This 77-nucleotide sequence from Beijerinckia indica belongs to the Rfam family "Makes More Granules Regulator RNA (mmgR)". The match comes from Rfam's covariance-model search (62 bits).
[Rfam]
RNA sequence: UGCUAAUGCCCUCCUUGGGCGUUUCCUCCCUUGACUUGCACCGCUUGUGGCAACACGAGCGGUUUUCUUUUUGGGCC
Numbered sequence: 001u002g003c004u005a006a007u008g009c010c011c012u013c014c015u016u017g018g019g020c021g022u023u024u025c026c027u028c029c030c031u032u033g034a035c036u037u038g039c040a041c042c043g044c045u046u047g048u049g050g051c052a053a054c055a056c057g058a059g060c061g062g063u064u065u066u067c068u069u070u071u072u073g074g075g076c077c
Stems, first nucleotide, its partner, number of pairs: 008020004041062009
Rfam classes the family as a small RNA. SuhB later renamed mmgR (makes more granules regulator) was a putative non-coding RNA found multiple times in the Agrobacterium tumefaciens genome and related alpha-proteobacteria. Other non-coding RNAs uncovered in the same analysis include: speF, ybhL, metA, and serC.Several studies inSinorhizobium meliloti showed that suhB element is indeed a non-coding RNA:firstly it was detected on Northern blot and called Sm8RNA, secondly in an RNAseq study referred to as SmelC689.The mutant phenotype's (strain lacking the small RNA) cytoplasm contains higher content of polyhydroxybutyrate (PBH)storage granules than wild type strain. Rfam links the family to the GO terms protein binding, response to nitrogen compound and DNA-templated transcription, termination.